The family of this 156-nucleotide RNA from Phoenix dactylifera is "Small nucleolar RNA snoR2/U65". Rfam classes the family as an H/ACA-box small nucleolar RNA. A reference for the family is Shaw et al. (1998), "Localization and processing from a polycistronic precursor of novel snoRNAs in maize", J Cell Sci. It scores 122 bits against the family's covariance model.
RNA sequence: GGUCCAAUGCCACUUCUCUGGUAGCCUGGUGCAUUGACCCGAGAUGCUAUGAUUGGGCCAAGAUCAACUCAAGUUUUGAUGCUUCGCAAGUUGAUAGGAACCUGUGGAUUAGAUGGUUAUUGUCUAUCCACGGAGCCGGUUUAUGCGAUUACAUCU
Numbered sequence: 001g002g003u004c005c006a007a008u009g010c011c012a013c014u015u016c017u018c019u020g021g022u023a024g025c026c027u028g029g030u031g032c033a034u035u036g037a038c039c040c041g042a043g044a045u046g047c048u049a050u051g052a053u054u055g056g057g058c059c060a061a062g063a064u065c066a067a068c069u070c071a072a073g074u075u076u077u078g079a080u081g082c083u084u085c086g087c088a089a090g091u092u093g094a095u096a097g098g099a100a101c102c103u104g105u106g107g108a109u110u111a112g113a114u115g116g117u118u119a120u121u122g123u124c125u126a127u128c129c130a131c132g133g134a135g136c137c138g139g140u141u142u143a144u145g146c147g148a149u150u151a152c153a154u155c156u
Stems, first nucleotide, its partner, number of pairs: 002058007009050001013046001015044004020039003024032002084148005097137002102133003106129004